A member of the RNA family "mir-9242 microRNA precursor family" from Cnephaeus nilssonii, 66 nucleotides long.

[Rfam]
RNA sequence: GGCCUCCCUCUGCGGGGUGAUAGAUCAGCGGGGGCUCUCUGAUCGAUCACCCAGCAGAGGGAGGCC
Number, nucleotide and partner (000 for none) at each position: 001g066002g065003c064004c063005u062006c061007c060008c059009u058010c057011u056012g055013c054014g000015g052016g051017g050018u049019g048020a047021u046022a000023g044024a043025u042026c041027a040028g039029c000030g037031g036032g000033g000034g000035c000036u031037c030038u000039c028040u027041g026042a025043u024044c023045g000046a021047u020048c019049a018050c017051c016052c015053a000054g013055c012056a011057g010058a009059g008060g007061g006062a005063g004064g003065c002066c001

The organism belongs to Cnephaeus, within Eukaryota.